[Rfam]
RNA sequence: CGCAAUCGGGCCUGACUCGUUGCUCGACCUGUUUUUUUAGAGCGAGGUGAGCAAAGUUUCAGGUGUGUUUGCGG
Numbered sequence: 001c002g003c004a005a006u007c008g009g010g011c012c013u014g015a016c017u018c019g020u021u022g023c024u025c026g027a028c029c030u031g032u033u034u035u036u037u038u039a040g041a042g043c044g045a046g047g048u049g050a051g052c053a054a055a056g057u058u059u060c061a062g063g064u065g066u067g068u069u070u071g072c073g074g
Stems, first nucleotide, its partner, number of pairs: 002072004007067001010064006018056001020054002023051004028047003
RNA: mir-87 microRNA precursor family